Group II catalytic intron D1-D4-3: a 170-nucleotide RNA from Paraglaciecola sp. MB-3u-78. The pairing is the family consensus, mapped onto this sequence. The match comes from Rfam's covariance-model search (53 bits). NCBI's taxonomy places the organism under Bacteria, Gammaproteobacteria, Alteromonadales, Alteromonadaceae, Paraglaciecola.
[Rfam]
RNA sequence: UUACUGGCUAACGGUAAGGUCUGAAGGAAGCCAUAGGAAGUUAGAGGUACACAACUAACCGUAACCUGUUUCGGCGGCAUUGGUGGGUAAGCGUCCAUAAUAGCGCGAAGCCCAAUACUUAGUCAGACCAAUGCUGUGCUUGAGGGUGGCAUUUUUAACAGGGAGCUAGU
Numbered sequence: 001u002u003a004c005u006g007g008c009u010a011a012c013g014g015u016a017a018g019g020u021c022u023g024a025a026g027g028a029a030g031c032c033a034u035a036g037g038a039a040g041u042u043a044g045a046g047g048u049a050c051a052c053a054a055c056u057a058a059c060c061g062u063a064a065c066c067u068g069u070u071u072c073g074g075c076g077g078c079a080u081u082g083g084u085g086g087g088u089a090a091g092c093g094u095c096c097a098u099a100a101u102a103g104c105g106c107g108a109a110g111c112c113c114a115a116u117a118c119u120u121a122g123u124c125a126g127a128c129c130a131a132u133g134c135u136g137u138g139c140u141u142g143a144g145g146g147u148g149g150c151a152u153u154u155u156u157a158a159c160a161g162g163g164a165g166c167u168a169g170u
Base pairs, nucleotide, nucleotide: 001017002016003015004014005013006012033170034169037166040159041158042157043156044155045154046150048148049147050146065145066144067143074137075136076135078133079132080131081130082129083128084127085113086112087111088110091106092105093104094103